[Rfam]
RNA sequence: AUCGUUCAUCUAGCCGAAAAUUGGAUUCGGCGGACGGAAGUAGGGAGAAGUCCCGAAGGAACGCGCC
Numbered sequence: 001a002u003c004g005u006u007c008a009u010c011u012a013g014c015c016g017a018a019a020a021u022u023g024g025a026u027u028c029g030g031c032g033g034a035c036g037g038a039a040g041u042a043g044g045g046a047g048a049a050g051u052c053c054c055g056a057a058g059g060a061a062c063g064c065g066c067c
Stems, first nucleotide, its partner, number of pairs: 003063005009034003037064001043054003
Source information:
The family of this 67-nucleotide RNA from Stenomitos frigidus is "Glutamine riboswitch aptamer (glnA leader)". It scores 49 bits against the family's covariance model. Gene Ontology term of the family: glutamine binding.